[Rfam]
Nucleotides: 094
Stems, first nucleotide, its partner, number of pairs: 002089006013078004018074004026068003
Number, partner (000 for none) and nucleotide at each position: 001000g002089g003088g004087u005086u006085a007084g008000c009000u010000g011000u012000a013078g014077c015076u016075c017000a018074g019073c020072g021071g022000u023000u024000a025000c026068u027067u028066c029000a030000u031000u032000g033000c034000a035000u036000u037000g038000c039000a040000a041000a042000u043000g044000u045000u046000g047000g048000c049000u050000a051000c052000a053000c054000c055000g056000a057000c058000a059000g060000g061000u062000g063000u064000u065000c066028g067027a068026g069000a070000c071021c072020c073019g074018c075016g076015g077014g078013u079000g080000c081000u082000a083000u084007c085006u086005g087004a088003c089002c090000u091000u092000u093000u094000a

A member of the RNA family "Vault RNA" from Microcaecilia unicolor, 94 nucleotides long. It scores 70 bits against the family's covariance model. A reference for the family is Stadler et al. (2009), "Evolution of Vault RNAs", Mol Biol Evol. It is annotated as a non-coding RNA gene.